[Rfam]
RNA sequence: AGACUUAAAUGGUACAACUGGAGAAAUUCAGUGUCACAAAGCUAUAGGGGCUAAGGUCUUGUACUACGCCAGCCAGCUGCCAUU
Numbered sequence: 001a002g003a004c005u006u007a008a009a010u011g012g013u014a015c016a017a018c019u020g021g022a023g024a025a026a027u028u029c030a031g032u033g034u035c036a037c038a039a040a041g042c043u044a045u046a047g048g049g050g051c052u053a054a055g056g057u058c059u060u061g062u063a064c065u066a067c068g069c070c071a072g073c074c075a076g077c078u079g080c081c082a083u084u
Stems, first nucleotide, its partner, number of pairs: 012037002017032006040078004047074002049070003056064002
The family of this 84-nucleotide RNA sequence from Fictibacillus arsenicus is "c-di-GMP-I riboswitch aptamer". The family's consensus secondary structure is taken from published work. About the family: GEMM was predicted in a large-scale screen for bacterial structured RNA regulatory elements. Genes associated with GEMM are involved in a diverse array of functions, including chemotaxis regulation, signal transduction, secretion and chitin. Taxonomically the source falls in Fictibacillus (Bacteria, Bacillati, Bacilli, Fictibacillaceae).